[Rfam]
RNA sequence: ACGGAAGGCUGGAUGGCUGCGGUUCUUAAUUGGGCCGAGGAAAGUCCGGACUCCAUGAAGCAACGGUGCCGGGUAACGCCCGGCCAGGGUAACCUGAGGGAUAGCGCCACAGAGAAGAAACCGCUUUUGUUUCGACUUAAGUAAGGGUGAAACGGUGCGGUAAGAGCGCACCGCGGGACGGGUAACCGGACCGGCACGGCAAGCCCCACCGGGAGCAAUGCCAAAUAGGGAUGCUGCGCGCGUGUGAUCGAGCAAUCGAUAUCCGCGCAGGGAAGCUUUAGCCUGAGGCAUCCGGGUUGGCAGCUAGAGGCGCUGGGGUAAUCCAGUGCUAAGAUGAAUGGUCAUCUAUUUGCGGCUCGAGAGGGCCGCAUUGGACAAAAUCCGGCUUAUAGGCCCUCCGUACGC
Numbered sequence: 001a002c003g004g005a006a007g008g009c010u011g012g013a014u015g016g017c018u019g020c021g022g023u024u025c026u027u028a029a030u031u032g033g034g035c036c037g038a039g040g041a042a043a044g045u046c047c048g049g050a051c052u053c054c055a056u057g058a059a060g061c062a063a064c065g066g067u068g069c070c071g072g073g074u075a076a077c078g079c080c081c082g083g084c085c086a087g088g089g090u091a092a093c094c095u096g097a098g099g100g101a102u103a104g105c106g107c108c109a110c111a112g113a114g115a116a117g118a119a120a121c122c123g124c125u126u127u128u129g130u131u132u133c134g135a136c137u138u139a140a141g142u143a144a145g146g147g148u149g150a151a152a153c154g155g156u157g158c159g160g161u162a163a164g165a166g167c168g169c170a171c172c173g174c175g176g177g178a179c180g181g182g183u184a185a186c187c188g189g190a191c192c193g194g195c196a197c198g199g200c201a202a203g204c205c206c207c208a209c210c211g212g213g214a215g216c217a218a219u220g221c222c223a224a225a226u227a228g229g230g231a232u233g234c235u236g237c238g239c240g241c242g243u244g245u246g247a248u249c250g251a252g253c254a255a256u257c258g259a260u261a262u263c264c265g266c267g268c269a270g271g272g273a274a275g276c277u278u279u280a281g282c283c284u285g286a287g288g289c290a291u292c293c294g295g296g297u298u299g300g301c302a303g304c305u306a307g308a309g310g311c312g313c314u315g316g317g318g319u320a321a322u323c324c325a326g327u328g329c330u331a332a333g334a335u336g337a338a339u340g341g342u343c344a345u346c347u348a349u350u351u352g353c354g355g356c357u358c359g360a361g362a363g364g365g366c367c368g369c370a371u372u373g374g375a376c377a378a379a380a381u382c383c384g385g386c387u388u389a390u391a392g393g394c395c396c397u398c399c400g401u402a403c404g405c
Stems, first nucleotide, its partner, number of pairs: 001401005007395004011390001012346007020037006042388003046385005051215004064211005069083005084098001085096004099206002104204002106200003121146002123142004129136002154172006173195001174193003179188003219302004229293006310329008
RNA: Bacterial RNase P class A